[Rfam]
RNA sequence: UGCUGAUGAUGAUAAAUCCAAAGGCUUGUUUCUCAAAACAUUCGCAGUGGCCGCCUGAAAGUUUUCGCCUUGCCGGGCUUGAGAGCUUAUGUUGCUCAACAUUUCCUUCCUUGGAUGUCUGAGGCU
Numbered sequence: 001u002g003c004u005g006a007u008g009a010u011g012a013u014a015a016a017u018c019c020a021a022a023g024g025c026u027u028g029u030u031u032c033u034c035a036a037a038a039c040a041u042u043c044g045c046a047g048u049g050g051c052c053g054c055c056u057g058a059a060a061g062u063u064u065u066c067g068c069c070u071u072g073c074c075g076g077g078c079u080u081g082a083g084a085g086c087u088u089a090u091g092u093u094g095c096u097c098a099a100c101a102u103u104u105c106c107u108u109c110c111u112u113g114g115a116u117g118u119c120u121g122a123g124g125c126u
Stems, first nucleotide, its partner, number of pairs: 002125003061086006

The record is a 126-nucleotide RNA sequence from Cocos nucifera, which matches "Small nucleolar RNA SNORD14" in Rfam. It is annotated as a C/D-box small nucleolar RNA. Pairs were carried over by alignment from the consensus structure, which was predicted with PFOLD. U14 small nucleolar RNA (U14 snoRNA) is required for early cleavages of eukaryotic precursor rRNAs. In yeasts, this molecule possess a stem-loop region (known as the Y-domain) which is essential for function. A similar structure, but with a different consensus sequence, is found in plants, but is absent in vertebrates. The match comes from Rfam's covariance-model search (76 bits). On this family, see Samarsky et al., Nucleic Acids Res 1996: "An essential domain in Saccharomyces cerevisiae U14 snoRNA is absent in vertebrates, but conserved in other yeasts".